[Rfam]
RNA sequence: UUAAAUACCUGUCUCGCUGGAAUCCUUCCCGACGUGUUGCUAUAGCUCAAAACACCCUGCCGCUACAUGGCAUAACAACACGCAACGUCUCUUUCGUUGCCAUAACGCAUGCAAACAGGGAGACACACCGCAAUGCACACC
Numbered sequence: 001u002u003a004a005a006u007a008c009c010u011g012u013c014u015c016g017c018u019g020g021a022a023u024c025c026u027u028c029c030c031g032a033c034g035u036g037u038u039g040c041u042a043u044a045g046c047u048c049a050a051a052a053c054a055c056c057c058u059g060c061c062g063c064u065a066c067a068u069g070g071c072a073u074a075a076c077a078a079c080a081c082g083c084a085a086c087g088u089c090u091c092u093u094u095c096g097u098u099g100c101c102a103u104a105a106c107g108c109a110u111g112c113a114a115a116c117a118g119g120g121a122g123a124c125a126c127a128c129c130g131c132a133a134u135g136c137a138c139a140c141c
Stems, first nucleotide, its partner, number of pairs: 013120003019029003038109003058072005082100005